[Rfam]
RNA sequence: UGGGAAGGCUGAAUUAGAGAUUGGCUUUCGUUAUGUUUAAUGGAAAAUUUGGAGUUAUUUAUGUCUCUAAGUACUGAAGCGAAAGCGCAAAUUAUCUCAGACUAUGGCCGUGAUAAA
Numbered sequence: 001u002g003g004g005a006a007g008g009c010u011g012a013a014u015u016a017g018a019g020a021u022u023g024g025c026u027u028u029c030g031u032u033a034u035g036u037u038u039a040a041u042g043g044a045a046a047a048u049u050u051g052g053a054g055u056u057a058u059u060u061a062u063g064u065c066u067c068u069a070a071g072u073a074c075u076g077a078a079g080c081g082a083a084a085g086c087g088c089a090a091a092u093u094a095u096c097u098c099a100g101a102c103u104a105u106g107g108c109c110g111u112g113a114u115a116a117a
Stems, first nucleotide, its partner, number of pairs: 007026006048071007
Background: Rfam assigns this 117-nucleotide RNA from Arsenophonus endosymbiont of Aphis craccivora to the family "Ribosomal S15 leader". It scores 93 bits against the family's covariance model. By type it is a cis-regulatory leader. Rfam links the family to the GO term regulation of translation, ncRNA-mediated. Rfam's curators write: The E. coli Ribosomal S15 gene 5' UTR can form two alternative structures. One that is a series of three hairpins, The other includes a pseudoknot.